ASpks TB sRNA: a 75-nucleotide RNA sequence from Micromonospora wenchangensis. The family's RNA type in Rfam is antisense RNA. The family's consensus secondary structure is taken from published work.
RNA sequence: CUUCACCGAGCCGAGACGCAGGGGCCGCUCCGCCGGCCGGUCCUGGCCGUAGGUGGCGAUCAGCGCCUGUGCCUC
Numbered sequence: 001c002u003u004c005a006c007c008g009a010g011c012c013g014a015g016a017c018g019c020a021g022g023g024g025c026c027g028c029u030c031c032g033c034c035g036g037c038c039g040g041u042c043c044u045g046g047c048c049g050u051a052g053g054u055g056g057c058g059a060u061c062a063g064c065g066c067c068u069g070u071g072c073c074u075c
Base pairs, nucleotide, nucleotide: 015025017023031071032070033069038065039064044059047056048055049054